This 93-nucleotide sequence from Atractosteus spatula belongs to the Rfam family "mir-146 microRNA precursor family". A search with the family's covariance model found it, with a score of 52 bits. Its family is annotated with RISC complex and miRNA-mediated post-transcriptional gene silencing in the Gene Ontology. The organism belongs to Atractosteus, within Eukaryota.
RNA sequence: AGGAGCUCUUGGCUGUGAGAACUGAAUUCCAUAGAUGGUGACCCACUGAAUAGUCCAUCUAUGGCUUCAGUUCUUGUAGUCUGAGGCUCACAG
Number, nucleotide and partner (000 for none) at each position: 001a000002g000003g000004a000005g000006c000007u000008c000009u083010u000011g081012g080013c079014u000015g000016u000017g000018a074019g073020a072021a071022c070023u069024g068025a067026a000027u000028u000029c000030c000031a000032u000033a060034g059035a058036u057037g000038g000039u000040g000041a000042c000043c000044c000045a000046c000047u000048g000049a000050a000051u000052a000053g000054u000055c000056c000057a036058u035059c034060u033061a000062u000063g000064g000065c000066u000067u025068c024069a023070g022071u021072u020073c019074u018075u000076g000077u000078a000079g013080u012081c011082u000083g009084a000085g000086g000087c000088u000089c000090a000091c000092a000093g000